About this RNA: Shown here is a 62-nucleotide sequence from Tupaia belangeri, a member of the family "U7 small nuclear RNA". It scores 57 bits against the family's covariance model. Pairs were carried over by alignment from the consensus structure, which was predicted with PFOLD. From the family's description: Animal histone pre-mRNAs are spliced by a different mechanism than nuclear pre-mRNAs and self-splicing introns. This processing involves the U7 snRNP, which contains only one RNA species: U7. The 5' end of U7 RNA is thought to base-pair to a conserved spacer element downstream of the cleavage site in histone pre-mRNA. This family contains a number of annotated U7 pseudogenes.

RNA sequence: CAAUGUUACGGCUCUUUUAGAAUUUGUCUAACAGGUUUCCCAGUUUUUACCAGAAAGCCCCA
Number, nucleotide and partner (000 for none) at each position: 001c000002a000003a000004u000005g000006u000007u000008a000009c000010g000011g000012c000013u000014c000015u000016u000017u000018u000019a000020g000021a000022a000023u000024u000025u000026g000027u000028c000029u000030a000031a000032c000033a000034g059035g058036u057037u056038u055039c000040c053041c000042a000043g050044u049045u000046u000047u000048u000049a044050c043051c000052a000053g040054a000055a038056a037057g036058c035059c034060c000061c000062a000